RNA sequence: UACUUGUGAUGAUUAAUUUUAUGUGUCAACGUGUCUGGGCCACUGGGUGCCCAGAUAUUUGGCUACACAUUAUUCCAGGUGUGUCUGCGAGGGUA
Numbered sequence: 001u002a003c004u005u006g007u008g009a010u011g012a013u014u015a016a017u018u019u020u021a022u023g024u025g026u027c028a029a030c031g032u033g034u035c036u037g038g039g040c041c042a043c044u045g046g047g048u049g050c051c052c053a054g055a056u057a058u059u060u061g062g063c064u065a066c067a068c069a070u071u072a073u074u075c076c077a078g079g080u081g082u083g084u085c086u087g088c089g090a091g092g093g094u095a
Stems, first nucleotide, its partner, number of pairs: 001095004
The record is a 95-nucleotide sequence from Equus caballus, which matches "Small nucleolar RNA SNORD66" in Rfam. NCBI's taxonomy places the organism under Eukaryota, Bilateria, Craniata, Equidae, Equus. The family's RNA type in Rfam is C/D-box small nucleolar RNA. The family's consensus secondary structure was predicted with RNAalifold. The family has 20 seed sequences and 1,346 matches in Rfam 15.1. Rfam's curators write: snoRNA HBII-142 is part of the C/D family of snoRNAs. It is the human orthologue of the mouse MBII-142 snoRNA and is predicted to guide 2'O-ribose methylation of small 18S rRNA at residue C1272. The literature on the family includes a 2001 paper in EMBO J by Huttenhofer et al., "RNomics: an experimental approach that identifies 201 candidates for novel, small, non-messenger RNAs in mouse".